RNA sequence: GGCGGUUCUUGGGUGACACACCCCAGAAUUGGGCUCCCUCCUUUCUGUUUCCGGGUGCAUCACCCCAGAAUCACA
Dot-bracket structure: .(..(((((.((((((..(((((..(((.((((..........)))).))).)))))..)))))).)))))..).

This 75-nucleotide sequence from Myotis brandtii belongs to the Rfam family "mir-9223 microRNA precursor family". Gene Ontology terms of the family: RISC complex and miRNA-mediated post-transcriptional gene silencing. The organism belongs to Myotis, within Eukaryota. Rfam 15.1 lists 14,641 matches to the family in 28 species.